[Rfam]
RNA sequence: UGAGUCGGCUGGGUGAUCGCGGCUCCGCGAACCAUUCCACAGGAAAAAGGCGCGGGUCGAGGAAAGUCCGGACUCCACAGGGCACGGUGGUUGCUAACGGCAACCCGGAGCAAUCCGCGGGAAAGUGCAACAGAAAGUAGACCGCCGGCGCUGCGCACGGCAUCGCCGGGUGCAACGCAGGUAAGGGUGAAAGGGUGCGGUAAGAGCGCACCGGCGUGUGCGGUGACGCAUGCGGCCAGGUAAACCCCACUGGGAGCAAGGCAAGAACCCCUGCCUUUUGGCAGAGGUCGUCGGACGUGAUGAGGCUGCCCGCCCAUGUUCGAAGGUAGCUGCUCGAGACGCUCAGUAAUGGGCGUCCUAGAUGGAUGAUCGCCGCCCUGGGCUGCGCUCAGGGAACAGAAUCCGGCUCACAGGCCGGCUCACUCG
Numbered sequence: 001u002g003a004g005u006c007g008g009c010u011g012g013g014u015g016a017u018c019g020c021g022g023c024u025c026c027g028c029g030a031a032c033c034a035u036u037c038c039a040c041a042g043g044a045a046a047a048a049g050g051c052g053c054g055g056g057u058c059g060a061g062g063a064a065a066g067u068c069c070g071g072a073c074u075c076c077a078c079a080g081g082g083c084a085c086g087g088u089g090g091u092u093g094c095u096a097a098c099g100g101c102a103a104c105c106c107g108g109a110g111c112a113a114u115c116c117g118c119g120g121g122a123a124a125g126u127g128c129a130a131c132a133g134a135a136a137g138u139a140g141a142c143c144g145c146c147g148g149c150g151c152u153g154c155g156c157a158c159g160g161c162a163u164c165g166c167c168g169g170g171u172g173c174a175a176c177g178c179a180g181g182u183a184a185g186g187g188u189g190a191a192a193g194g195g196u197g198c199g200g201u202a203a204g205a206g207c208g209c210a211c212c213g214g215c216g217u218g219u220g221c222g223g224u225g226a227c228g229c230a231u232g233c234g235g236c237c238a239g240g241u242a243a244a245c246c247c248c249a250c251u252g253g254g255a256g257c258a259a260g261g262c263a264a265g266a267a268c269c270c271c272u273g274c275c276u277u278u279u280g281g282c283a284g285a286g287g288u289c290g291u292c293g294g295a296c297g298u299g300a301u302g303a304g305g306c307u308g309c310c311c312g313c314c315c316a317u318g319u320u321c322g323a324a325g326g327u328a329g330c331u332g333c334u335c336g337a338g339a340c341g342c343u344c345a346g347u348a349a350u351g352g353g354c355g356u357c358c359u360a361g362a363u364g365g366a367u368g369a370u371c372g373c374c375g376c377c378c379u380g381g382g383c384u385g386c387g388c389u390c391a392g393g394g395a396a397c398a399g400a401a402u403c404c405g406g407c408u409c410a411c412a413g414g415c416c417g418g419c420u421c422a423c424u425c426g
Stems, first nucleotide, its partner, number of pairs: 001422010011411001012374007020059006027053003065408002068406005073256004080311004085252005090104005105119001106117004120247002125245002127241002142186002144182003148178003152174005194212006214236001215234008260331003291323006304314003338357008
RNA: Bacterial RNase P class A